[Rfam]
RNA sequence: CAGCACGCACCAACCAGCCCCUUCCGCGUCGUGGCAUACGCGCUGGCGGCCAAAGUGCGGUGCGAGAGGU
Numbered sequence: 001c002a003g004c005a006c007g008c009a010c011c012a013a014c015c016a017g018c019c020c021c022u023u024c025c026g027c028g029u030c031g032u033g034g035c036a037u038a039c040g041c042g043c044u045g046g047c048g049g050c051c052a053a054a055g056u057g058c059g060g061u062g063c064g065a066g067a068g069g070u
Stems, first nucleotide, its partner, number of pairs: 003063004008057003017050003020046002026041004
RNA: Trypanosomatid snoRNA TB11Cs5H1
Organism: Trypanosoma conorhini